[Rfam]
RNA sequence: AACCACACUAUCGAUGAAUGGAUUCACCCGUGAGAUGACGUGGUUGUUCCAUCUAGGAUGAGGACGUGGUAUCCUAUUAAUUUCGUACAGGUAAUAGGAUGCCAUGUCCUCGUCCUAAGUGAAACAGCCACGUCAUCUCGCGGGUGAAUCCAUUCAUUGAUAAUGUGGCU
Number, nucleotide and partner (000 for none) at each position: 001a170002a000003c168004c167005a166006c165007a164008c000009u162010a161011u160012c159013g158014a157015u156016g000017a154018a153019u152020g000021g150022a149023u148024u147025c146026a145027c144028c143029c000030g141031u140032g139033a138034g000035a136036u135037g134038a133039c132040g000041u130042g129043g128044u127045u126046g125047u124048u123049c000050c000051a120052u119053c000054u117055a116056g000057g114058a113059u000060g000061a000062g000063g108064a107065c106066g000067u000068g000069g102070u101071a100072u099073c098074c097075u096076a095077u094078u093079a092080a000081u000082u000083u000084c000085g000086u000087a000088c000089a000090g000091g000092u079093a078094a077095u076096a075097g074098g073099a072100u071101g070102c069103c000104a000105u000106g065107u064108c063109c000110u000111c000112g000113u058114c057115c000116u055117a054118a000119g052120u051121g000122a000123a048124a047125c046126a045127g044128c043129c042130a041131c000132g039133u038134c037135a036136u035137c000138u033139c032140g031141c030142g000143g028144g027145u026146g025147a024148a023149u022150c021151c000152a019153u018154u017155c000156a015157u014158u013159g012160a011161u010162a009163a000164u007165g006166u005167g004168g003169c000170u001
Source information
The family of this 170-nucleotide RNA from Oryza sativa is "MIR807 microRNA precursor family". The family's consensus secondary structure was predicted with WAR. For this family Rfam cites "Rice embryogenic calli express a unique set of microRNAs, suggesting regulatory roles of microRNAs in plant post-embryogenic development" (Luo et al., FEBS Lett, 2006). Rfam links the family to the GO terms miRNA-mediated post-transcriptional gene silencing and RISC complex. It is one of the family's seed sequences.